[Rfam]
The family of this 54-nucleotide RNA from Salmo trutta is "UnaL2 LINE 3' element".
The family's consensus secondary structure is taken from published work.
By type it is a cis-regulatory element.
Rfam links the family to the GO term transposition, RNA-mediated.
The match comes from Rfam's covariance-model search (63 bits).
NCBI's taxonomy places the organism under Eukaryota, Metazoa, Eumetazoa, Protacanthopterygii, Salmo.
RNA sequence: CUAAAUUACUCCUGUAAGUUGCUCUGGAUAAGAGCAUCUGCUAAAUGACUGAAA
Numbered sequence: 001c002u003a004a005a006u007u008a009c010u011c012c013u014g015u016a017a018g019u020u021g022c023u024c025u026g027g028a029u030a031a032g033a034g035c036a037u038c039u040g041c042u043a044a045a046u047g048a049c050u051g052a053a054a
Stems, first nucleotide, its partner, number of pairs: 013043001014041003020036006